[Rfam]
RNA sequence: UUUGCGGCGGUCUCCGAUUCGCUUGGUGCAGGUCGGGACUCUCACGGCGCCGCAGCCGCUCCAGGCAACGGUCCUCGGCGGAGUUUAGGUCCUGCCCUGAAUCAAUUGAAUUGGAGGCUGCCGCGAUU
Numbered sequence: 001u002u003u004g005c006g007g008c009g010g011u012c013u014c015c016g017a018u019u020c021g022c023u024u025g026g027u028g029c030a031g032g033u034c035g036g037g038a039c040u041c042u043c044a045c046g047g048c049g050c051c052g053c054a055g056c057c058g059c060u061c062c063a064g065g066c067a068a069c070g071g072u073c074c075u076c077g078g079c080g081g082a083g084u085u086u087a088g089g090u091c092c093u094g095c096c097c098u099g100a101a102u103c104a105a106u107u108g109a110a111u112u113g114g115a116g117g118c119u120g121c122c123g124c125g126a127u128u
Stems, first nucleotide, its partner, number of pairs: 013115002017111004023105005029099004034094007
RNA: MIR168 microRNA precursor family